Bacterial RNase P class B: a 390-nucleotide RNA from Pseudoneobacillus rhizosphaerae.
NCBI's taxonomy places the organism under Bacteria, Bacillota, Bacilli, Caryophanales, Pseudoneobacillus.

RNA sequence: GCGUUCGGGUAAUCGCUGCAAUGCAAAUUGUAGAGGAAAGUCCAUGCUCGCACGAUGCUGAGAUGCUCGUAGUGUUCGUGCCUAGCGAAAUCAUAAGCUAGGGCAGUGGGGCUUUGCCCCGCUGACGGCCGGGAAAAUGCCUAAGUCCUUAUGGGAUAUGGCAUGAAUACCUAUAAAAGUGCCACAGUGACGGAGCCUUUUCAGAAAUGAAAAGGGUGGAACGGGUAAACCCCACGAGCGAGCAACCCAAACUAUGGUAGGGGCACCUUCUCUAAGGAAAUGAACGAGAGAGAAGGACAGAAUACUAAUUCUGUAGAUAGAUGAUUACCACCUGUGUACGAGACUUUAUGGUCGCUUGUAGUACUACGGUACAGAACAUGGCUUACAGAA
Numbered sequence: 001g002c003g004u005u006c007g008g009g010u011a012a013u014c015g016c017u018g019c020a021a022u023g024c025a026a027a028u029u030g031u032a033g034a035g036g037a038a039a040g041u042c043c044a045u046g047c048u049c050g051c052a053c054g055a056u057g058c059u060g061a062g063a064u065g066c067u068c069g070u071a072g073u074g075u076u077c078g079u080g081c082c083u084a085g086c087g088a089a090a091u092c093a094u095a096a097g098c099u100a101g102g103g104c105a106g107u108g109g110g111g112c113u114u115u116g117c118c119c120c121g122c123u124g125a126c127g128g129c130c131g132g133g134a135a136a137a138u139g140c141c142u143a144a145g146u147c148c149u150u151a152u153g154g155g156a157u158a159u160g161g162c163a164u165g166a167a168u169a170c171c172u173a174u175a176a177a178a179g180u181g182c183c184a185c186a187g188u189g190a191c192g193g194a195g196c197c198u199u200u201u202c203a204g205a206a207a208u209g210a211a212a213a214g215g216g217u218g219g220a221a222c223g224g225g226u227a228a229a230c231c232c233c234a235c236g237a238g239c240g241a242g243c244a245a246c247c248c249a250a251a252c253u254a255u256g257g258u259a260g261g262g263g264c265a266c267c268u269u270c271u272c273u274a275a276g277g278a279a280a281u282g283a284a285c286g287a288g289a290g291a292g293a294a295g296g297a298c299a300g301a302a303u304a305c306u307a308a309u310u311c312u313g314u315a316g317a318u319a320g321a322u323g324a325u326u327a328c329c330a331c332c333u334g335u336g337u338a339c340g341a342g343a344c345u346u347u348a349u350g351g352u353c354g355c356u357u358g359u360a361g362u363a364c365u366a367c368g369g370u371a372c373a374g375a376a377c378a379u380g381g382c383u384u385a386c387a388g389a390a
Stems, first nucleotide, its partner, number of pairs: 004390003007386001008329007016033006038384003042381005047242005052070004057066002076237005081102006103126001104124008127232002131172003138163004145157003179230002181226003196215008246262003266296007297314006331369002336364004
Record summary: Rfam classes the family as a ribozyme. On this family, see Frank and Pace, Annu Rev Biochem 1998: "Ribonuclease P: unity and diversity in a tRNA processing ribozyme".